Rfam assigns this 74-nucleotide RNA sequence from Eubucco bourcierii to the family "mir-216 microRNA precursor family". The literature on the family includes a 2008 paper in Gene by Shao et al., "Identification of novel chicken microRNAs and analysis of their genomic organization". Clan: mir-216 clan. Taxonomically the source falls in Eubucco (Eukaryota, Craniata, Aves, Piciformes).

[Rfam]
RNA sequence: AGACUGGGAAAUCUCUGCAGGCAAAGGUGAUCAUUAUAGCAAUCUCACAAUUACCUGUAGAGAUUCUACAAUCU
Numbered sequence: 001a002g003a004c005u006g007g008g009a010a011a012u013c014u015c016u017g018c019a020g021g022c023a024a025a026g027g028u029g030a031u032c033a034u035u036a037u038a039g040c041a042a043u044c045u046c047a048c049a050a051u052u053a054c055c056u057g058u059a060g061a062g063a064u065u066c067u068a069c070a071a072u073c074u
Stems, first nucleotide, its partner, number of pairs: 003072001005070002010065008020056002023052002027048004